RNA sequence: UGUAUUCCUUAUCUGUUAUCUAUUUUAUAUGGUUAUGUGGAGCCUAUCUUCCCGAUACUUUCCCUUUAAUCUUUAAAAAUAAAGGGAAGAUAGGCCCUGAUGUAAUUGCCGCUUUAAUACUCAAA
Number, nucleotide and partner (000 for none) at each position: 001u000002g109003u108004a107005u000006u000007c000008c000009u000010u000011a000012u000013c000014u000015g000016u000017u000018a000019u000020c000021u000022a101023u100024u000025u099026u000027a000028u000029a000030u000031g000032g000033u000034u000035a000036u000037g000038u000039g098040g097041a000042g095043c094044c093045u092046a091047u090048c089049u000050u000051c086052c085053c084054g000055a000056u000057a080058c000059u078060u077061u076062c000063c000064c000065u000066u000067u000068a000069a000070u000071c000072u000073u000074u000075a000076a061077a060078a059079a000080u057081a000082a000083a000084g053085g052086g051087a000088a000089g048090a047091u046092a045093g044094g043095c042096c000097c040098u039099g025100a023101u022102g000103u000104a000105a000106u000107u004108g003109c002110c000111g000112c000113u000114u000115u000116a000117a000118u000119a000120c000121u000122c000123a000124a000125a000
RNA: tp2